The record is a 133-nucleotide RNA sequence from Rhizobacter terrae, which matches "Y RNA-like" in Rfam. On this family, see Chen et al., Cell 2013: "An RNA degradation machine sculpted by Ro autoantigen and noncoding RNA". In Deinococcus radiodurans Rsr is tethered via Y RNA to the exoribonuclease PNPase and channels single-stranded RNA into the PNPase cavity. Rsr and Y RNA enhance degradation of structured RNAs by PNPase. This role could be conserved, as Rsr and ncRNAs called YrlA and YrlB (Y RNA like) also associate with PNPase in an evolutionary distant bacterium Salmonella Typhimurium. Pairs were carried over by alignment from the consensus structure, which is taken from published work. Rfam classes the family as a small RNA.
[Rfam]
RNA sequence: GCAGCGAAUGCAGGUGGAACUACAGCCUCGUAAGCUCGUGGUCGCGGGUUCGAGUCCCGCCGGUUCCAGAUCAGGGGAACCGUAGCUCAGUUGGAUAGAGCACGAAGGUUUCGCCAAUACUUGUCGCUGCGUG
Numbered sequence: 001g002c003a004g005c006g007a008a009u010g011c012a013g014g015u016g017g018a019a020c021u022a023c024a025g026c027c028u029c030g031u032a033a034g035c036u037c038g039u040g041g042u043c044g045c046g047g048g049u050u051c052g053a054g055u056c057c058c059g060c061c062g063g064u065u066c067c068a069g070a071u072c073a074g075g076g077g078a079a080c081c082g083u084a085g086c087u088c089a090g091u092u093g094g095a096u097a098g099a100g101c102a103c104g105a106a107g108g109u110u111u112c113g114c115c116a117a118u119a120c121u122u123g124u125c126g127c128u129g130c131g132u133g
Stems, first nucleotide, its partner, number of pairs: 002129006013115007023104001038103002044060005061082006085101004